Small nucleolar RNA SNORD21: a 95-nucleotide RNA sequence from Grallaria varia.
The organism belongs to Grallaria, within Eukaryota.
Pairs were carried over by alignment from the consensus structure, which was predicted with PFOLD.
Its family is annotated with RNA processing and nucleolus in the Gene Ontology.
On this family, see Renalier et al., FEBS Lett 1996: "SnoRNA U21 is also intron-encoded in Drosophila melanogaster but in a different host-gene as compared to warm-blooded vertebrates".
RNA sequence: GCUACAUGAUGACACUCGCAAUGACUGAACACUGUGGUUGGUCCAUGGUAUGUAUGUGAUGUACUGCAGUGUUUCAAGACGGGACUGAUGGCAGC
Dot-bracket structure: ((((....................................................................................))))...